[Rfam]
SAM (S-adenosyl methionine) riboswitch aptamer: a 121-nucleotide RNA sequence from Nakamurella antarctica.
The base pairs follow the family's consensus structure, which is taken from published work.
NCBI's taxonomy places the organism under Bacteria, Bacillati, Actinomycetota, Actinomycetes, Nakamurella.
From the family's description: SAM-IV is a mRNA element that regulates gene expression via direct sensing of S-adenosylmethionine (SAM or AdoMet).
RNA sequence: GCUCCAGAGCGGAUGGCAGUUCGGGUACUUGGCCCGUCAUCCCGGCAACCGCGCCAUUUCCACUGCACGGUGCCCCAAGGGAAGAGCCGGCGGCUAGCACCUUCAGCCGCAAGAGGUGGGU
Numbered sequence: 001g002c003u004c005c006a007g008a009g010c011g012g013a014u015g016g017c018a019g020u021u022c023g024g025g026u027a028c029u030u031g032g033c034c035c036g037u038c039a040u041c042c043c044g045g046c047a048a049c050c051g052c053g054c055c056a057u058u059u060c061c062a063c064u065g066c067a068c069g070g071u072g073c074c075c076c077a078a079g080g081g082a083a084g085a086g087c088c089g090g091c092g093g094c095u096a097g098c099a100c101c102u103u104c105a106g107c108c109g110c111a112a113g114a115g116g117u118g119g120g121u
Stems, first nucleotide, its partner, number of pairs: 001087004009043001011042006024034002044074003049070003053066002090110006097101001